[Rfam]
RNA sequence: CUACAUGUUGCACCCCGGGCUUCUCUGAAAUAUAAAAUAACUAAAAAAAACCCCAAUGCUCAUGCUAAAUUUUUGUGGUUUAGUGUUGCAGGUUUGCUUAGUUCUUCAACAACUUAUUUGUGUCAAAAUAACUUCUACAUUU
Numbered sequence: 001c002u003a004c005a006u007g008u009u010g011c012a013c014c015c016c017g018g019g020c021u022u023c024u025c026u027g028a029a030a031u032a033u034a035a036a037a038u039a040a041c042u043a044a045a046a047a048a049a050a051c052c053c054c055a056a057u058g059c060u061c062a063u064g065c066u067a068a069a070u071u072u073u074u075g076u077g078g079u080u081u082a083g084u085g086u087u088g089c090a091g092g093u094u095u096g097c098u099u100a101g102u103u104c105u106u107c108a109a110c111a112a113c114u115u116a117u118u119u120g121u122g123u124c125a126a127a128a129u130a131a132c133u134u135c136u137a138c139a140u141u142u
Stems, first nucleotide, its partner, number of pairs: 004064004010059002017053003021049001022047001024045001026043001075135001077133004084125002087122006096113001098111001
This 142-nucleotide RNA sequence from Papaver somniferum belongs to the Rfam family "small nucleolar RNA snoR134".
It scores 82 bits against the family's covariance model.
The family's consensus secondary structure was predicted with RNAalifold.
Rfam classes the family as an H/ACA-box small nucleolar RNA.